[Rfam]
RNA sequence: UGACGGGGGAACACCACAACCGGUGGGGGCUGCGGUUUAAUUAGAUCCAACGCAGAGCACCCUACCAGAGCCGACAGCAGAAUGACGGUCAGCUUGAAGAGCUUACCCGACGCGCUGAGAGGAGCUGCAUGGCCGCCGUCAGCUCGUGCCGUGAGGUGUCCGGUUAAGUCCGGUAACGAGCGAGACCCGCAUCCGAUGUUGCCAUGGAUCCCUUCGGGGAUUCGGCACUCGUCGGAGACCGCUGGUGAUAAACCAGGGGAAGGAGCGGGCCACGGUAGGUCAGUAUGGCCCGAAUGCUCUGGGAUACACGCGGCCCACAAUGGCCGGAACAGAGGGAAGCCACCCCGAAAGGGGAAGCUAACCCCCUAAAUCCGGCCGCAAUUCGGAUUGAGGACUGCAACUCGUCCUCAUGAAGUCGAAAUCGGUAGUAGUCGCUGGUCAUCAUCUAGCGGCGAAUAAGUCCCUGUUCCUUGUACACACCGCCUGUCAAGUCACCCGAGUCAGGUUUAGACGAGCACCUGGUUUUCUAGGCGCAAGUCUAAGCUUGGCAAGGGGGGCUAAGUCAUAAUCCUUGAAUUGUGACCUCAA
Dot-bracket structure: (((((.(((((((..((..((((((.((((((((((....((.(........).))........(((((((...((((.(......(((.(((.......))).)))...)..))))...((.((((..(((((((((...(((((((((....)))..((((......))))..)))))).....((((.(((((((...((..(((((((....)))))))))....)))))))..((.(((((.....))))).)).....))))....)))).)))...))))))))....)))))))...)).)))))))).)...(((((((.....(((..((..((((....))))..))....))).....)))))))......(....(((((((........)))))))....).....))))).....((((((((.......))))))))......))...)))))))))).))....(..((.(.((((.(((..(((((((((((((..((.(((((....))))).))..)))))))))))))..))).))))..).))...)...................
Archaeal small subunit ribosomal RNA: a 588-nucleotide part of an RNA from Nanohaloarchaea archaeon H01. Clan: SSU clan. Rfam links the family to the GO terms structural constituent of ribosome and ribosome. A search with the family's covariance model found it, with a score of 1457 bits. The family's consensus secondary structure is taken from published work. Taxonomically the source falls in Candidatus Nanohaloarchaea (Archaea, Methanobacteriati, Methanobacteriota).